Record summary
A member of the RNA family "DUF1874 RNA", 97 nucleotides long.
[Rfam]
RNA sequence: GUUAAACCCGCAAGGAGGUGGCCAUCCAAAGGUAAGAGUUCCCAUAGGGAACCGCCAUCUCCUAUCCACCCUUAGGUGGGUUUGCGGGGAAGGAGGU
Dot-bracket structure: ......((((((((((((((((.............(.(((((.....)))))))))))))))..(((((......))))).))))))).........
Numbered sequence: 001g002u003u004a005a006a007c008c009c010g011c012a013a014g015g016a017g018g019u020g021g022c023c024a025u026c027c028a029a030a031g032g033u034a035a036g037a038g039u040u041c042c043c044a045u046a047g048g049g050a051a052c053c054g055c056c057a058u059c060u061c062c063u064a065u066c067c068a069c070c071c072u073u074a075g076g077u078g079g080g081u082u083u084g085c086g087g088g089g090a091a092g093g094a095g096g097u
Stems, first nucleotide, its partner, number of pairs: 007088007014062009036053001038052005065080005